A member of the RNA family "ASpks TB sRNA" from Streptosporangium becharense, 75 nucleotides long. It is annotated as an antisense RNA. NCBI's taxonomy places the organism under Bacteria, Actinomycetes, Streptosporangiales, Streptosporangiaceae, Streptosporangium. The family's consensus secondary structure is taken from published work. A reference for the family is Arnvig and Young (2009), "Identification of small RNAs in Mycobacterium tuberculosis", Mol Microbiol.
[Rfam]
RNA sequence: CUUGAUCGAGCCCAGCCAGAGCGGCAGGUCGGAGGGGCGGUCCUUGCCGUAGGUGGCCAGCAGCGCCUGCGCCUC
Numbered sequence: 001c002u003u004g005a006u007c008g009a010g011c012c013c014a015g016c017c018a019g020a021g022c023g024g025c026a027g028g029u030c031g032g033a034g035g036g037g038c039g040g041u042c043c044u045u046g047c048c049g050u051a052g053g054u055g056g057c058c059a060g061c062a063g064c065g066c067c068u069g070c071g072c073c074u075c
Base pairs, nucleotide, nucleotide: 015025016024017023032070038065039064043060044059047056048055049054